A member of the RNA family "Small nucleolar RNA SNORD24" from Triparma retinervis, 87 nucleotides long. The family's RNA type in Rfam is C/D-box small nucleolar RNA. Rfam links the family to the GO terms nucleolus and RNA processing.

[Rfam]
RNA sequence: UACGGAUGAUUAUAGAUUAUUUGCUACUCUAUAGCGCUUUCGCAGGCGCGAUGCUGAUAAACCAUUAUCACCAAGAUCUAUGACGUA
Numbered sequence: 001u002a003c004g005g006a007u008g009a010u011u012a013u014a015g016a017u018u019a020u021u022u023g024c025u026a027c028u029c030u031a032u033a034g035c036g037c038u039u040u041c042g043c044a045g046g047c048g049c050g051a052u053g054c055u056g057a058u059a060a061a062c063c064a065u066u067a068u069c070a071c072c073a074a075g076a077u078c079u080a081u082g083a084c085g086u087a
Stems, first nucleotide, its partner, number of pairs: 001087004